The record is an 88-nucleotide sequence from Vulpes vulpes, which matches "mir-8799 microRNA precursor family" in Rfam. NCBI's taxonomy places the organism under Eukaryota, Deuterostomia, Boreoeutheria, Canidae, Vulpes. Its Rfam clan is "mir-8791 microRNA precursor clan". Rfam 15.1 lists 20,638 matches to the family in 5 species.
RNA sequence: GGGGGGAGGUCAGAUCCUGGGCUGUGUCCCCGGUGCCCUGUGCUCCUGGGCCUGCACUGGAUUCGCGCUCCCAGCCUGGCAGUCCCCU
Numbered sequence: 001g002g003g004g005g006g007a008g009g010u011c012a013g014a015u016c017c018u019g020g021g022c023u024g025u026g027u028c029c030c031c032g033g034u035g036c037c038c039u040g041u042g043c044u045c046c047u048g049g050g051c052c053u054g055c056a057c058u059g060g061a062u063u064c065g066c067g068c069u070c071c072c073a074g075c076c077u078g079g080c081a082g083u084c085c086c087c088u
Base pairs, nucleotide, nucleotide: 001088002087003086004085005084006083009080010079011078012077013076016074019071020070021069023067024066025065026064027061028060031059032058033057034056035055036054040052042051043050044049